[Rfam]
Source information
The family of this 366-nucleotide RNA is "transfer-messenger RNA". Rfam's curators write: Bacterial tmRNA, also known as 10Sa RNA or SsrA, is named for its dual tRNA and mRNA-like properties. Its role is to liberate the mRNA from a stalled ribosome. To accomplish this part of the tmRNA is used as a reading frame that ends in a translation stop signal. The broken mRNA is replaced in the ribosome by the tmRNA and translation of the tmRNA leads to addition of a proteolysis tag to the incomplete protein enabling recognition by a protease. Gene Ontology term of the family: RNA catabolic process.
RNA sequence: GGGGCUGACCAGGUUUCGACGUGGGUUACAAAGCAGCGCAGUGCAUACCGAGGCUCAGAUUACCUCGUAAAUACAGCUGAACAAGUAUAGUCGCAAACGACGAAACUUACGCUCUAGCAGCUUAGUUCUGCUAGACGCUGCACCAUCUCUCCCGUGGGGUGGGUGGCCUUAAAACCAUCGCAGCGUCAUAUACACGGGAUACGUUUUACGUUGGGUUACUUAGCGUAAAAUUAACCUUUAGGUAGCUCGUCUGUACACCGCUUGUCUGUUGGUGUGGUGCAGAUUAAAUUAAACAACAAGGCUAAGUAUGUAGAACUGUCUGUAGAGGAUUUGCGGACGCGGGUUCGAUUCCCGCCAGCUCCACCA
Numbered sequence: 001g002g003g004g005c006u007g008a009c010c011a012g013g014u015u016u017c018g019a020c021g022u023g024g025g026u027u028a029c030a031a032a033g034c035a036g037c038g039c040a041g042u043g044c045a046u047a048c049c050g051a052g053g054c055u056c057a058g059a060u061u062a063c064c065u066c067g068u069a070a071a072u073a074c075a076g077c078u079g080a081a082c083a084a085g086u087a088u089a090g091u092c093g094c095a096a097a098c099g100a101c102g103a104a105a106c107u108u109a110c111g112c113u114c115u116a117g118c119a120g121c122u123u124a125g126u127u128c129u130g131c132u133a134g135a136c137g138c139u140g141c142a143c144c145a146u147c148u149c150u151c152c153c154g155u156g157g158g159g160u161g162g163g164u165g166g167c168c169u170u171a172a173a174a175c176c177a178u179c180g181c182a183g184c185g186u187c188a189u190a191u192a193c194a195c196g197g198g199a200u201a202c203g204u205u206u207u208a209c210g211u212u213g214g215g216u217u218a219c220u221u222a223g224c225g226u227a228a229a230a231u232u233a234a235c236c237u238u239u240a241g242g243u244a245g246c247u248c249g250u251c252u253g254u255a256c257a258c259c260g261c262u263u264g265u266c267u268g269u270u271g272g273u274g275u276g277g278u279g280c281a282g283a284u285u286a287a288a289u290u291a292a293a294c295a296a297c298a299a300g301g302c303u304a305a306g307u308a309u310g311u312a313g314a315a316c317u318g319u320c321u322g323u324a325g326a327g328g329a330u331u332u333g334c335g336g337a338c339g340c341g342g343g344u345u346c347g348a349u350u351c352c353c354g355c356c357a358g359c360u361c362c363a364c365c366a
Stems, first nucleotide, its partner, number of pairs: 001362007020335008033323004038319005044310005049067005055080004060075001113135008136185006145164002148159002150199007203231009214247006249284008260273003264302004269295001339355005

For this family Rfam cites "tmRDB (tmRNA database)" (Zwieb et al., Nucleic Acids Res, 2003).